miR-430 microRNA precursor family: a 70-nucleotide sequence from Acanthochromis polyacanthus. A reference for the family is Giraldez et al. (2005), "MicroRNAs regulate brain morphogenesis in zebrafish", Science. The match comes from Rfam's covariance-model search (72 bits). The family's consensus secondary structure was predicted with RNAalifold. Clan: mir-290 clan.

[Rfam]
RNA sequence: AAGGUGACCCUAACAAGAGCACUGACUUUGUGUAUAAAUGCAGUAAGUGCUUCUUGUUGGGGUAAUGUUG
Number, nucleotide and partner (000 for none) at each position: 001a000002a000003g000004g066005u065006g000007a063008c062009c061010c060011u059012a000013a057014c056015a055016a054017g053018a051019g050020c049021a048022c047023u046024g000025a044026c043027u042028u000029u000030g000031u000032g000033u000034a000035u000036a000037a000038a000039u000040g000041c000042a027043g026044u025045a000046a023047g022048u021049g020050c019051u018052u000053c017054u016055u015056g014057u013058u000059g011060g010061g009062g008063u007064a000065a005066u004067g000068u000069u000070g000